RNA sequence: GGAGGGUGCCUUUCAGGCAUCCUCUCCCAAAACUUUCCAAGGGGCUGGCUCACGCUGGCCCCAUUUUUUUGCCCGCC
Number, nucleotide and partner (000 for none) at each position: 001g000002g000003a000004g000005g000006g000007u000008g018009c017010c016011u015012u000013u000014c000015a011016g010017g009018c008019a000020u000021c000022c000023u000024c000025u000026c000027c000028c000029a000030a000031a000032a000033c000034u000035u000036u000037c000038c000039a000040a000041g062042g061043g060044g059045c058046u057047g056048g055049c054050u000051c000052a000053c000054g049055c048056u047057g046058g045059c044060c043061c042062c041063a000064u000065u000066u000067u000068u000069u000070u000071g000072c000073c000074c000075g000076c000077c000

The record is a 77-nucleotide RNA sequence from Novosphingobium sp. KA1, which matches "Makes More Granules Regulator RNA (mmgR)" in Rfam. Rfam links the family to the GO terms protein binding, DNA-templated transcription, termination and response to nitrogen compound. The family is grouped with related families in Rfam's "suhB sRNA clan". On this family, see Corbino et al., Genome Biol 2005: "Evidence for a second class of S-adenosylmethionine riboswitches and other regulatory RNA motifs in alpha-proteobacteria". The base pairs follow the family's consensus structure.